Small nucleolar RNA SNORD102: a 74-nucleotide RNA sequence from Psilopogon haemacephalus.
RNA sequence: AGCUUGAUGAUGAUUGUCUCCUGUGAUUGCUUGCUGAAAGCAAAGUGAUCUUCCUUUCACCGACACUGAAAGCA
Numbered sequence: 001a002g003c004u005u006g007a008u009g010a011u012g013a014u015u016g017u018c019u020c021c022u023g024u025g026a027u028u029g030c031u032u033g034c035u036g037a038a039a040g041c042a043a044a045g046u047g048a049u050c051u052u053c054c055u056u057u058c059a060c061c062g063a064c065a066c067u068g069a070a071a072g073c074a
Base pairs, nucleotide, nucleotide: 002073003072004071005070
Gene Ontology terms of the family: nucleolus and RNA processing. On this family, see Vitali et al., Nucleic Acids Res 2003: "Identification of 13 novel human modification guide RNAs". The family's RNA type in Rfam is C/D-box small nucleolar RNA. The organism belongs to Psilopogon, within Eukaryota.